[Rfam]
RNA sequence: UGCCUUUGUGUUGCCCAUUCAUUCCUGACCAGAAUGAAUGUGGUGUCAAGAAAGGCGAACAGGAACUCUUGCUCAGACUAUUAAAGGAGUUGAUUAUGUACUUUUCAUCUCCCUGUCUUUGCAAGGACAAAA
Numbered sequence: 001u002g003c004c005u006u007u008g009u010g011u012u013g014c015c016c017a018u019u020c021a022u023u024c025c026u027g028a029c030c031a032g033a034a035u036g037a038a039u040g041u042g043g044u045g046u047c048a049a050g051a052a053a054g055g056c057g058a059a060c061a062g063g064a065a066c067u068c069u070u071g072c073u074c075a076g077a078c079u080a081u082u083a084a085a086g087g088a089g090u091u092g093a094u095u096a097u098g099u100a101c102u103u104u105u106c107a108u109c110u111c112c113c114u115g116u117c118u119u120u121g122c123a124a125g126g127a128c129a130a131a132a
Stems, first nucleotide, its partner, number of pairs: 002056006009048002012045004016040008068125005075118003082115002086111002088108001092103002
A member of the RNA family "Small nucleolar RNA SNORA13" from Calypte anna, 132 nucleotides long. Clan: SNORA13 clan. A search with the family's covariance model found it, with a score of 86 bits. Pairs were carried over by alignment from the consensus structure, which was predicted with CMfinder. Gene Ontology terms of the family: nucleolus and RNA processing. ACA13 is a member of the H/ACA class of snoRNA that guide the sites of modification of uridines to pseudouridines. It is annotated as an H/ACA-box small nucleolar RNA.